A member of the RNA family "isrA Hfq binding RNA" from Salmonella enterica, 117 nucleotides long. By type it is a small RNA. The family has 10 seed sequences and 34 matches in Rfam 15.1. The literature on the family includes a 2008 paper in Nucleic Acids Res by Padalon-Brauch et al., "Small RNAs encoded within genetic islands of Salmonella typhimurium show host-induced expression and role in virulence".
RNA sequence: AUCUUCACCGUCACGCUGCGCCCGGUCUCAAAUCCCGCUUCUUCCUGGCAGUCGCCGCUGGGGAUUUGUGAGUAACAGGCGGUCAUGCAGGUUUCGCUGUUGAUGUGGCGGACGCUG
Numbered sequence: 001a002u003c004u005u006c007a008c009c010g011u012c013a014c015g016c017u018g019c020g021c022c023c024g025g026u027c028u029c030a031a032a033u034c035c036c037g038c039u040u041c042u043u044c045c046u047g048g049c050a051g052u053c054g055c056c057g058c059u060g061g062g063g064a065u066u067u068g069u070g071a072g073u074a075a076c077a078g079g080c081g082g083u084c085a086u087g088c089a090g091g092u093u094u095c096g097c098u099g100u101u102g103a104u105g106u107g108g109c110g111g112a113c114g115c116u117g
Base pairs, nucleotide, nucleotide: 027070029068030067031066032065033064034063035062036061049060050059051058052057095110096109097108
Dot-bracket structure: ..........................(.((((((((............((((....)))))))))))).)........................(((..........))).......